This 70-nucleotide RNA from Thermaerobacter marianensis belongs to the Rfam family "Transposase-2 RNA". Pairs were carried over by alignment from the consensus structure, which is taken from published work. Taxonomically the source falls in Thermaerobacter marianensis (Bacteria, Bacillota, Clostridia, Eubacteriales).

RNA sequence: GAAGUGGGCAGCCGGCACCGGCUCAUGGCCGGGUAAGACCGGCGCCGCCGAUCCAUGAGGAUCGGCUGCC
Numbered sequence: 001g002a003a004g005u006g007g008g009c010a011g012c013c014g015g016c017a018c019c020g021g022c023u024c025a026u027g028g029c030c031g032g033g034u035a036a037g038a039c040c041g042g043c044g045c046c047g048c049c050g051a052u053c054c055a056u057g058a059g060g061a062u063c064g065g066c067u068g069c070c
Stems, first nucleotide, its partner, number of pairs: 011043005018032005047066008